[Rfam]
RNA: M-box riboswitch aptamer (ykoK leader)
RNA sequence: AAGGCGCUUCGUUAGGUGAGGCUCCUUAGUAGACAGAGGUCACUGAUCUCACGACGUCGAGAGACGCCCAAGAUUAGGACAGAGCACAUCGGAUUAAGGUGUGUUCCCAGGUGACUUCCCGUUCGUGGAUACGCUACUGAGAGUCAAAACUUUUACAUGGAAGCGCGUU
Numbered sequence: 001a002a003g004g005c006g007c008u009u010c011g012u013u014a015g016g017u018g019a020g021g022c023u024c025c026u027u028a029g030u031a032g033a034c035a036g037a038g039g040u041c042a043c044u045g046a047u048c049u050c051a052c053g054a055c056g057u058c059g060a061g062a063g064a065c066g067c068c069c070a071a072g073a074u075u076a077g078g079a080c081a082g083a084g085c086a087c088a089u090c091g092g093a094u095u096a097a098g099g100u101g102u103g104u105u106c107c108c109a110g111g112u113g114a115c116u117u118c119c120c121g122u123u124c125g126u127g128g129a130u131a132c133g134c135u136a137c138u139g140a141g142a143g144u145c146a147a148a149a150c151u152u153u154u155a156c157a158u159g160g161a162a163g164c165g166c167g168u169u
Stems, first nucleotide, its partner, number of pairs: 005165006011156002013097001015151003020145003025141008039115005045075005055066004082106004088100003117129003